RNA sequence: UGACGGGGGCCCGCACAAGCGGAGGAGUAUGUGGUUUAAUUCGAUGAUACGCGAGGAACCUUACCCGGGCUUGAAAGUUAGUGAAGGUAGCAGAGACGCUACCGUCCUUCGGGACACGAAACUAGGUGCUGCAUGGCUGUCGUCAGCUCGUGCCGUGAGGUGUUGGGUUAAGUCCCGCAACGAGCGCAACCCCUAUGUUUAGUUGCCAGCACGUUAAGGUGGGGACUCUAAACAGACUGCCUGCGCAAGCAGUGAGGAAGGCGGGGACGACGUCAAGUCAUCAUGGCCCUUACGUCCGGGGCUACACACGUACUACAAUGGAUGGUACAGCGGGCAGCUAGGCAGCAAUGUCAUGCUAAUCUCUAAAAGCCAUUCACAGUUCGGAUCGGGGUCUGCAACUCGACCCCGUGAAGUUGGAUUCGCUAGUAAUCGCGUAUCAGCAAUGACGCGGUGAAUACGUUCCCGGGCCUUGUACACACCGCCCGUCAAGCCAUGAAAGUUGGGGGUGCCUAAAGCAUGUAACCGCAAGGAGCGUGUUAGGGCAAAACCGAUAAUUGGGGCUAAGUCGUAACAAGGUAGCCGUACCGGAAGGUGCGGCUG
Numbered sequence: 001u002g003a004c005g006g007g008g009g010c011c012c013g014c015a016c017a018a019g020c021g022g023a024g025g026a027g028u029a030u031g032u033g034g035u036u037u038a039a040u041u042c043g044a045u046g047a048u049a050c051g052c053g054a055g056g057a058a059c060c061u062u063a064c065c066c067g068g069g070c071u072u073g074a075a076a077g078u079u080a081g082u083g084a085a086g087g088u089a090g091c092a093g094a095g096a097c098g099c100u101a102c103c104g105u106c107c108u109u110c111g112g113g114a115c116a117c118g119a120a121a122c123u124a125g126g127u128g129c130u131g132c133a134u135g136g137c138u139g140u141c142g143u144c145a146g147c148u149c150g151u152g153c154c155g156u157g158a159g160g161u162g163u164u165g166g167g168u169u170a171a172g173u174c175c176c177g178c179a180a181c182g183a184g185c186g187c188a189a190c191c192c193c194u195a196u197g198u199u200u201a202g203u204u205g206c207c208a209g210c211a212c213g214u215u216a217a218g219g220u221g222g223g224g225a226c227u228c229u230a231a232a233c234a235g236a237c238u239g240c241c242u243g244c245g246c247a248a249g250c251a252g253u254g255a256g257g258a259a260g261g262c263g264g265g266g267a268c269g270a271c272g273u274c275a276a277g278u279c280a281u282c283a284u285g286g287c288c289c290u291u292a293c294g295u296c297c298g299g300g301g302c303u304a305c306a307c308a309c310g311u312a313c314u315a316c317a318a319u320g321g322a323u324g325g326u327a328c329a330g331c332g333g334g335c336a337g338c339u340a341g342g343c344a345g346c347a348a349u350g351u352c353a354u355g356c357u358a359a360u361c362u363c364u365a366a367a368a369g370c371c372a373u374u375c376a377c378a379g380u381u382c383g384g385a386u387c388g389g390g391g392u393c394u395g396c397a398a399c400u401c402g403a404c405c406c407c408g409u410g411a412a413g414u415u416g417g418a419u420u421c422g423c424u425a426g427u428a429a430u431c432g433c434g435u436a437u438c439a440g441c442a443a444u445g446a447c448g449c450g451g452u453g454a455a456u457a458c459g460u461u462c463c464c465g466g467g468c469c470u471u472g473u474a475c476a477c478a479c480c481g482c483c484c485g486u487c488a489a490g491c492c493a494u495g496a497a498a499g500u501u502g503g504g505g506g507u508g509c510c511u512a513a514a515g516c517a518u519g520u521a522a523c524c525g526c527a528a529g530g531a532g533c534g535u536g537u538u539a540g541g542g543c544a545a546a547a548c549c550g551a552u553a554a555u556u557g558g559g560g561c562u563a564a565g566u567c568g569u570a571a572c573a574a575g576g577u578a579g580c581c582g583u584a585c586c587g588g589a590a591g592g593u594g595c596g597g598c599u600g
Base pairs, nucleotide, nucleotide: 001476002475003473004472005471007470008469009468010467011466012465013464015460016459019423020422021421022420023419024316026314027313028312029311030310031309032308033307034305035304040055041054042053043052064300065299066298067297068296069295070294076123077122078121079119081117082116083115086103087102088101089100090099091098105114106113107112125289126288128287129286130285131284134283135282136278137277138276139274141272142271146185147184148183149182150181151180152161153160154159164177165176166175167174191266192265193264194263196234197233198232199231200230201229202228206223207222210221211220212219237257238256240254241252242251243250244249320375321374322373323372324371325370326369332363333362334361337356338355342351343350344349382413387408388407389406390405391404392403393402429452430451431450432449433448434447435446479575481572484568485567489562490561491560492559494557495556496555499552500551501550502549503548507544508543509542510541515537516536517535518534519533520532523530524529577600578599579598580597581596582595583594584593585592586591
Shown here is a 600-nucleotide part of an RNA from Sphingobacterium sp. JB170, a member of the family "Bacterial small subunit ribosomal RNA". It scores 1516 bits against the family's covariance model. Pairs were carried over by alignment from the consensus structure, which is taken from published work. The organism belongs to Sphingobacterium, within Bacteria.